[Rfam]
MIR403 microRNA precursor family: a 115-nucleotide sequence from Cannabis sativa.
Gene Ontology terms of the family: miRNA-mediated post-transcriptional gene silencing and RISC complex.

RNA sequence: GCAUAUUUCAGGUUUGUGUGUGAAUCUAAAGCAUUCUCAAUCACUCUCACCAAUUUCAAUUUGGGGAUUUUGUAUUAGUGUGCAUUAGAUUCACGCACAAACUCGUAAUCUUCCU
Numbered sequence: 001g002c003a004u005a006u007u008u009c010a011g012g013u014u015u016g017u018g019u020g021u022g023a024a025u026c027u028a029a030a031g032c033a034u035u036c037u038c039a040a041u042c043a044c045u046c047u048c049a050c051c052a053a054u055u056u057c058a059a060u061u062u063g064g065g066g067a068u069u070u071u072g073u074a075u076u077a078g079u080g081u082g083c084a085u086u087a088g089a090u091u092c093a094c095g096c097a098c099a100a101a102c103u104c105g106u107a108a109u110c111u112u113c114c115u
Stems, first nucleotide, its partner, number of pairs: 001113001003111001005109003011103016028086002032082002

On this family, see Mica et al., BMC Genomics 2009: "High throughput approaches reveal splicing of primary microRNA transcripts and tissue specific expression of mature microRNAs in Vitis vinifera". A search with the family's covariance model found it, with a score of 74 bits.